[Rfam]
RNA: RAGATH-18 RNA
RNA sequence: UCUGUGGAGAGUAAAAGAACUUGUGAGUAGUAUUAGAGUCAUCUAGUACGAAAGCAUACUCGAUGAAACAGAAA
Numbered sequence: 001u002c003u004g005u006g007g008a009g010a011g012u013a014a015a016a017g018a019a020c021u022u023g024u025g026a027g028u029a030g031u032a033u034u035a036g037a038g039u040c041a042u043c044u045a046g047u048a049c050g051a052a053a054g055c056a057u058a059c060u061c062g063a064u065g066a067a068a069c070a071g072a073a074a
Stems, first nucleotide, its partner, number of pairs: 001072005009061005022056003030049003035044002